[Rfam]
RNA sequence: CUUGAUCGGAGCUACGGGACCUUCAGAUCGUUCCUCGGGAAGGUGCGCCCACUUUCGCCCCGCCGCACCGAGGUU
Numbered sequence: 001c002u003u004g005a006u007c008g009g010a011g012c013u014a015c016g017g018g019a020c021c022u023u024c025a026g027a028u029c030g031u032u033c034c035u036c037g038g039g040a041a042g043g044u045g046c047g048c049c050c051a052c053u054u055u056c057g058c059c060c061c062g063c064c065g066c067a068c069c070g071a072g073g074u075u
Stems, first nucleotide, its partner, number of pairs: 003030005008024003039056007
Rfam assigns this 75-nucleotide RNA from Mycobacterium decipiens to the family "Actinobacteria sRNA Ms_AS-8". The pairing is the family consensus, mapped onto this sequence. NCBI's taxonomy places the organism under Bacteria, Bacillati, Actinomycetes, Mycobacteriaceae, Mycobacterium. It scores 70 bits against the family's covariance model. On this family, see Li et al., RNA 2013: "Identification of small RNAs in Mycobacterium smegmatis using heterologous Hfq". Rfam classes the family as a small RNA.